[Rfam]
RNA sequence: AGACAGAAAGACAGACAGACGGGGAUAAGGUAGAGCAUGAGAUGGACCAAAUCAACAUCAAAAUAUGUUGUUUGCUCUUCCCAUGCACUGCCUCUUCCCUGGCUCUCUCCCUCUCCUUCUCC
Numbered sequence: 001a002g003a004c005a006g007a008a009a010g011a012c013a014g015a016c017a018g019a020c021g022g023g024g025a026u027a028a029g030g031u032a033g034a035g036c037a038u039g040a041g042a043u044g045g046a047c048c049a050a051a052u053c054a055a056c057a058u059c060a061a062a063a064u065a066u067g068u069u070g071u072u073u074g075c076u077c078u079u080c081c082c083a084u085g086c087a088c089u090g091c092c093u094c095u096u097c098c099c100u101g102g103c104u105c106u107c108u109c110c111c112u113c114u115c116c117u118u119c120u121c122c
Base pairs, nucleotide, nucleotide: 017104018103020101021100022099023098024097025096028093029092030091031090032089033088035086036085037084038083039082041081045077046076